[Rfam]
Nucleotides: 136
Base pairs, nucleotide, nucleotide: 005132006131007130008129009128010127017029018028019027031116032115033106034105035066036065037064038063061104062103070081071080086102087101088100089099090098108119109118110117
Number, partner (000 for none) and nucleotide at each position: 001000u002000a003000a004000u005132a006131a007130c008129u009128u010127c011000g012000g013000g014000g015000u016000c017029g018028g019027g020000u021000g022000a023000a024000a025000g026000u027019c028018c029017c030000a031116a032115c033106c034105g035066g036065c037064g038063g039000u040000g041000a042000a043000g044000u045000a046000g047000c048000a049000c050000g051000a052000u053000g054000c055000u056000a057000a058000c059000g060000a061104g062103c063038c064037c065036g066035c067000g068000a069000c070081c071080u072000g073000c074000g075000c076000a077000a078000g079000c080071a081070g082000u083000u084000g085000a086102u087101u088100u089099g090098g091000u092000u093000a094000a095000a096000a097000u098090c099089c100088a101087a102086a103062g104061c105034c106033g107000a108119c109118c110117g111000u112000a113000a114000a115032g116031u117110c118109g119108g120000g121000u122000a123000u124000a125000a126000a127010g128009a129008a130007g131006u132005u133000u134000a135000a136000a